[Rfam]
RNA sequence: AACAUUCCUUCCUUUACUCGGAUCGUCCGGCACGUUCCUGCCGGUGAAGGGAAUCCACC
Dot-bracket structure: .........(((((((..........((((((......)))))))))))))........